[Rfam]
RNA sequence: CCAUGAACUUUGUACCGCGCAUAUCACUUGGAUGGGCUCCUGGAAGUCGCGUAAGAG
Dot-bracket structure: ..................((.((((.....)))).))....................
Numbered sequence: 001c002c003a004u005g006a007a008c009u010u011u012g013u014a015c016c017g018c019g020c021a022u023a024u025c026a027c028u029u030g031g032a033u034g035g036g037c038u039c040c041u042g043g044a045a046g047u048c049g050c051g052u053a054a055g056a057g
Stems, first nucleotide, its partner, number of pairs: 019037002022034004

Plastid-ndhJ 3UTR RNA: a 57-nucleotide RNA from Camphora micrantha.
A search with the family's covariance model found it, with a score of 64 bits.
A reference for the family is Richter et al. (2023), "Retrograde signaling in plants: A critical review focusing on the GUN pathway and beyond", Plant Commun.